The family of this 102-nucleotide RNA from Caminicella sporogenes is "Purine riboswitch aptamer". The literature on the family includes a 2003 paper in Cell by Mandal et al., "Riboswitches Control Fundamental Biochemical Pathways in Bacillus subtilis and Other Bacteria". The family's consensus secondary structure is taken from published work.
RNA sequence: UAUGAAUAAGAUUAAAACACUCAUAUAAGUCCAGUAAUAUGGUCUGGAUGUUUCUACCAGGCGACCGUAAAUUGCCUGACUAUGAGUGGAAUUAUUAUACUA
Numbered sequence: 001u002a003u004g005a006a007u008a009a010g011a012u013u014a015a016a017a018c019a020c021u022c023a024u025a026u027a028a029g030u031c032c033a034g035u036a037a038u039a040u041g042g043u044c045u046g047g048a049u050g051u052u053u054c055u056a057c058c059a060g061g062c063g064a065c066c067g068u069a070a071a072u073u074g075c076c077u078g079a080c081u082a083u084g085a086g087u088g089g090a091a092u093u094a095u096u097a098u099a100c101u102a
Stems, first nucleotide, its partner, number of pairs: 018088008029049006058078007